The family of this 178-nucleotide RNA from Nostoc sp. PCC 7524 is "c-di-AMP riboswitch aptamer (ydaO/yuaA leader)".
RNA sequence: AAUUCAAAUUCACCAAACUUGAAUUUGAAGCGGAGGAACCAAAUAUUGGGGCGCAUCUUCUAGAGGGUUGCAUUUUCCAGGUUUAACUAACUCAGCACUCAUACCAAUUCACCACUCAUAAGAGAGACACCUUCCAGUCUUAGCCCGUCAGCUAACUUCGUAGGCAAUGGAAGGAACC
Dot-bracket structure: ............((....((......)).((((((....((.....))(((.....(((............................................................)))..((((........))))...))).........)))))).))..............
From the family's description: This family represents a conserved RNA structure found upstream of the ydaO and yuaA genes in Bacillus subtilis and related genes in other bacteria. The ydaO/yuaA element is thought to act as a genetic 'off' switch for the ydaO and yuaA genes in its native state. The base pairs follow the family's consensus structure.